[Rfam]
Nucleotides: 108
Base pairs, nucleotide, nucleotide: 006096008094009093010092011060012059013058014057017032018031019030020029021028039054040053041052042051043050064089065088066087067086070083071082072081073080
Number, partner (000 for none) and nucleotide at each position: 001000a002000a003000a004000a005000c006096g007000g008094a009093u010092a011060u012059g013058g014057g015000g016000a017032g018031c019030u020029g021028g022000c023000a024000g025000c026000a027000g028021c029020c030019g031018g032017c033000u034000g035000a036000g037000a038000g039054g040053g041052g042051a043050c044000u045000u046000a047000u048000g049000c050043g051042u052041c053040u054039c055000g056000a057014c058013c059012c060011a061000c062000a063000a064089c065088c066087u067086g068000a069000u070083u071082u072081g073080g074000a075000u076000a077000a078000u079000g080073c081072c082071a083070a084000c085000g086067u087066a088065g089064g090000g091000a092010u093009a094008u095000g096006c097000u098000u099000g100000a101000g102000a103000g104000a105000a106000g107000a108000g